[Rfam]
RNA sequence: GUGCCGUGAUGGAUUUAACGAUCGACACAUCAUUCCGAAACGAGCGGUGUGGACAGCUAAUGACUGAGCACA
Numbered sequence: 001g002u003g004c005c006g007u008g009a010u011g012g013a014u015u016u017a018a019c020g021a022u023c024g025a026c027a028c029a030u031c032a033u034u035c036c037g038a039a040a041c042g043a044g045c046g047g048u049g050u051g052g053a054c055a056g057c058u059a060a061u062g063a064c065u066g067a068g069c070a071c072a
Stems, first nucleotide, its partner, number of pairs: 001071004